[Rfam]
RNA sequence: UUGCACCUUUUGUCUGAUGGGUCCGCAGAUUUUUAUGGCGAGACCUCUAGUUACGGUGCAUAAAGAAAAAGUUGUUUUUACAGCAGCGGCCAGACAACCGUAGAGAUGAAUCCACAGACGUAUGGUUAUUUUUGUACUGUAUGUCUACUGAUUUCAUCUCAAAUUU
Numbered sequence: 001u002u003g004c005a006c007c008u009u010u011u012g013u014c015u016g017a018u019g020g021g022u023c024c025g026c027a028g029a030u031u032u033u034u035a036u037g038g039c040g041a042g043a044c045c046u047c048u049a050g051u052u053a054c055g056g057u058g059c060a061u062a063a064a065g066a067a068a069a070a071g072u073u074g075u076u077u078u079u080a081c082a083g084c085a086g087c088g089g090c091c092a093g094a095c096a097a098c099c100g101u102a103g104a105g106a107u108g109a110a111u112c113c114a115c116a117g118a119c120g121u122a123u124g125g126u127u128a129u130u131u132u133u134g135u136a137c138u139g140u141a142u143g144u145c146u147a148c149u150g151a152u153u154u155c156a157u158c159u160c161a162a163a164u165u166u
Base pairs, nucleotide, nucleotide: 002060003059004058005057006056014050015049016048019045020044022042024040025039026037027036103160104159105158106157107156108155109154110153119143120142121141122140123139124138125137